[Rfam]
RNA sequence: AUGCAUACGAUUAACUCUACUCGGAUUCCCCUUCAAGACAUCAUGGGUGAUGCUAACUCGAGUUUCUGAUGCA
Numbered sequence: 001a002u003g004c005a006u007a008c009g010a011u012u013a014a015c016u017c018u019a020c021u022c023g024g025a026u027u028c029c030c031c032u033u034c035a036a037g038a039c040a041u042c043a044u045g046g047g048u049g050a051u052g053c054u055a056a057c058u059c060g061a062g063u064u065u066c067u068g069a070u071g072c073a
Stems, first nucleotide, its partner, number of pairs: 002073004
RNA: Small nucleolar RNA snoR60